Purine riboswitch aptamer: a 98-nucleotide RNA from Enterococcus columbae. Pairs were carried over by alignment from the consensus structure, which is taken from published work.
RNA sequence: GUUUUUCAUAAUUAAUACGCUUAUAUAUCGUCGUAAUAUGGUCGACAGUUUCUACCCAAUACCGUAAAUGUUGGACUAUAAGCAAAAUUCGUUGCAUG
Numbered sequence: 001g002u003u004u005u006u007c008a009u010a011a012u013u014a015a016u017a018c019g020c021u022u023a024u025a026u027a028u029c030g031u032c033g034u035a036a037u038a039u040g041g042u043c044g045a046c047a048g049u050u051u052c053u054a055c056c057c058a059a060u061a062c063c064g065u066a067a068a069u070g071u072u073g074g075a076c077u078a079u080a081a082g083c084a085a086a087a088u089u090c091g092u093u094g095c096a097u098g
Stems, first nucleotide, its partner, number of pairs: 019083007030046004056074006
NCBI's taxonomy places the organism under Bacteria, Bacillati, Bacillota, Enterococcaceae, Enterococcus columbae.